[Rfam]
RNA sequence: ACAGCUUGAAGGCCGCGAGGCUCACCACACACAGGAUGUUCGCCGCAUCCGUUCUUGUGAGCGGGUUAAGGUCUGAGUAUUCAAGUCUCCCUAGAUCGACUCUUGCAGGGUCUAGCCUUAAUCAUGCUAAGCAGCACACCAGAAAUGCAGUCGCCAUCUCACUGAUCCAAAGAUCCUCUUCGGAGGGGAGGGCACGAGGUUGCGCGACUUUUGGAUAUGCUGUGGGGACUGGGCGGGGUUUUUUGUAAUACUUACAGCUGAUGCCUACGAGUGCAUGCAUCUCUGGUCUAUCGCUUGUCCGUAUGCCGCGCUGAGGCGUAAAAGUCGGUCUGUUUACUUGCUAUGGAGGCUAUUAUUUUCAAUAUUCUGUCAUCGUGACGUCUAGCUAACGUCCACGGUGCAGGACCGAACUUAUAGCCUUGUCGGCAUGCAACAGCUUCUGGAGACAGAAGUGACUUCUCUUCGGGCUAGUAUGAGGAAUCUAUGUGCAUGUAGUCCGGUGUUAGGACCUCCGCUCUUCAGUUCACUUCGCGGUUCGUGAUAUUCACGGAACUCGAUUCAGACUACUCUUUGACUGU
Number, nucleotide and partner (000 for none) at each position: 001a578002c577003a576004g575005c000006u000007u000008g571009a570010a000011g000012g535013c534014c533015g532016c531017g530018a529019g000020g062021c061022u060023c059024a058025c000026c000027a000028c000029a000030c000031a000032c000033a000034g050035g049036a048037u047038g046039u045040u000041c000042g000043c000044c000045g039046c038047a037048u036049c035050c034051g000052u000053u000054c000055u000056u000057g000058u024059g023060a022061g021062c020063g000064g000065g000066u000067u000068a000069a000070g000071g000072u000073c562074u561075g560076a559077g558078u000079a000080u000081u000082c000083a000084a000085g000086u000087c000088u228089c227090c226091c225092u000093a000094g000095a000096u000097c000098g112099a111100c110101u109102c108103u000104u000105g000106c000107a000108g102109g101110g100111u099112c098113u129114a128115g127116c126117c000118u124119u000120a000121a000122u000123c000124a118125u000126g116127c115128u114129a113130a000131g223132c222133a221134g220135c219136a218137c000138a000139c000140c000141a000142g000143a000144a000145a000146u000147g000148c000149a209150g208151u207152c206153g205154c000155c000156a000157u000158c000159u000160c000161a000162c000163u000164g000165a000166u000167c000168c000169a000170a000171a000172g000173a000174u000175c000176c000177u000178c000179u000180u000181c000182g000183g000184a000185g000186g000187g000188g000189a000190g000191g000192g000193c000194a000195c000196g000197a000198g000199g000200u000201u000202g000203c000204g000205c153206g152207a151208c150209u149210u000211u000212u000213g000214g000215a000216u000217a000218u136219g135220c134221u133222g132223u131224g000225g091226g090227g089228a088229c000230u000231g000232g000233g000234c000235g000236g000237g000238g000239u000240u000241u000242u000243u000244u000245g000246u000247a000248a000249u000250a000251c000252u000253u000254a000255c000256a000257g000258c000259u000260g000261a000262u000263g000264c000265c000266u000267a000268c000269g000270a000271g000272u000273g000274c000275a000276u000277g000278c000279a000280u000281c000282u000283c000284u000285g000286g000287u000288c000289u000290a000291u000292c000293g000294c000295u000296u000297g000298u000299c000300c000301g000302u000303a000304u000305g000306c000307c000308g000309c000310g000311c000312u000313g000314a000315g000316g000317c000318g000319u000320a000321a000322a000323a000324g000325u000326c000327g000328g000329u000330c000331u000332g000333u000334u000335u000336a000337c000338u000339u000340g000341c000342u000343a000344u000345g000346g000347a000348g000349g000350c000351u000352a000353u000354u000355a000356u000357u000358u000359u000360c000361a000362a000363u000364a000365u000366u000367c000368u000369g000370u000371c000372a000373u000374c000375g000376u000377g000378a000379c000380g000381u000382c000383u000384a000385g000386c000387u000388a000389a000390c000391g000392u000393c000394c000395a000396c000397g000398g000399u000400g000401c000402a000403g000404g000405a000406c000407c000408g000409a000410a000411c000412u000413u000414a000415u000416a000417g000418c000419c000420u000421u000422g000423u000424c000425g000426g000427c000428a000429u000430g000431c000432a000433a000434c000435a000436g000437c000438u000439u000440c000441u000442g000443g000444a000445g000446a000447c000448a000449g000450a000451a000452g000453u000454g000455a000456c000457u000458u000459c000460u000461c000462u000463u000464c000465g000466g000467g000468c000469u000470a000471g000472u000473a000474u000475g000476a000477g000478g000479a000480a000481u000482c000483u000484a000485u000486g000487u000488g000489c000490a000491u000492g000493u000494a000495g000496u000497c000498c000499g000500g000501u000502g000503u000504u000505a000506g000507g000508a000509c000510c000511u000512c000513c000514g000515c000516u000517c000518u000519u000520c000521a000522g000523u000524u000525c000526a000527c000528u000529u018530c017531g016532c015533g014534g013535u012536u550537c549538g548539u547540g546541a000542u000543a000544u000545u000546c540547a539548c538549g537550g536551a000552a000553c000554u000555c000556g000557a000558u077559u076560c075561a074562g073563a000564c000565u000566a000567c000568u000569c000570u009571u008572u000573g000574a000575c004576u003577g002578u001

Nuclear RNase P: a 578-nucleotide RNA sequence from Piloderma croceum. NCBI's taxonomy places the organism under Eukaryota, Fungi, Basidiomycota, Agaricomycotina, Piloderma croceum. Rfam describes the family as follows. Ribonuclease P (RNase P) is a ubiquitous endoribonuclease, found in archaea, bacteria and eukarya as well as chloroplasts and mitochondria. The match comes from Rfam's covariance-model search (67 bits). A reference for the family is Marquez et al. (2005), "Structural implications of novel diversity in eucaryal RNase P RNA", RNA.